[Rfam]
RNA sequence: CCUGGUGACCGGGCCCCUCUGGCGGACGUUUGCGACGCGUCCGUGAUGUCGGCACCGCGG
Numbered sequence: 001c002c003u004g005g006u007g008a009c010c011g012g013g014c015c016c017c018u019c020u021g022g023c024g025g026a027c028g029u030u031u032g033c034g035a036c037g038c039g040u041c042c043g044u045g046a047u048g049u050c051g052g053c054a055c056c057g058c059g060g
Base pairs, nucleotide, nucleotide: 006054007053009052010051011050012049022044023043024042025041026040027039028038029037

The record is a 60-nucleotide sequence from Paragemmobacter aquarius, which matches "terC RNA" in Rfam. A search with the family's covariance model found it, with a score of 57 bits. The base pairs follow the family's consensus structure, which is taken from published work.